The family of this 70-nucleotide RNA from Polypterus senegalus is "Small nucleolar RNA SNORD58". It scores 77 bits against the family's covariance model. The family's RNA type in Rfam is C/D-box small nucleolar RNA. Rfam links the family to the GO terms nucleolus and RNA processing. The family's consensus secondary structure was predicted with PFOLD. Clan: SNORD58 clan. From the family's description: snoRNA U58 is found in introns 1, 3 and 6 of the ribosomal protein RPL17 gene in humans. NCBI's taxonomy places the organism under Eukaryota, Bilateria, Deuterostomia, Actinopterygii, Polypterus.
RNA sequence: CUGCUGUGAUGACUAUCUUAGGACACCUUUGGAGUAACCAUGAAAAAAAAAAGAUAACUAACUGAGCAGC
Numbered sequence: 001c002u003g004c005u006g007u008g009a010u011g012a013c014u015a016u017c018u019u020a021g022g023a024c025a026c027c028u029u030u031g032g033a034g035u036a037a038c039c040a041u042g043a044a045a046a047a048a049a050a051a052a053g054a055u056a057a058c059u060a061a062c063u064g065a066g067c068a069g070c
Base pairs, nucleotide, nucleotide: 001069002068003067004066